[Rfam]
RNA sequence: GUAAUAAAUGAAUGCCCCAUUUGUAUAACCUCAAUAAUAUGGUUUGAGGGUCUCUACCAGGAACCGAUAAAUCCUGAUUACAAAAAGUGUACGUCUUGUA
Numbered sequence: 001g002u003a004a005u006a007a008a009u010g011a012a013u014g015c016c017c018c019a020u021u022u023g024u025a026u027a028a029c030c031u032c033a034a035u036a037a038u039a040u041g042g043u044u045u046g047a048g049g050g051u052c053u054c055u056a057c058c059a060g061g062a063a064c065c066g067a068u069a070a071a072u073c074c075u076g077a078u079u080a081c082a083a084a085a086a087g088u089g090u091a092c093g094u095c096u097u098g099u100a
Stems, first nucleotide, its partner, number of pairs: 020084006029049006058076005
A member of the RNA family "Purine riboswitch aptamer" from Paenibacillus polymyxa, 100 nucleotides long. Rfam 15.1 lists 4,097 matches to the family in 1,411 species. Riboswitches are metabolite binding domains within certain messenger RNAs that serve as precision sensors for their corresponding targets. The source organism's lineage runs through Bacteria, Bacillati, Bacillota, Paenibacillus and Paenibacillus polymyxa. Gene Ontology term of the family: purine nucleobase biosynthetic process.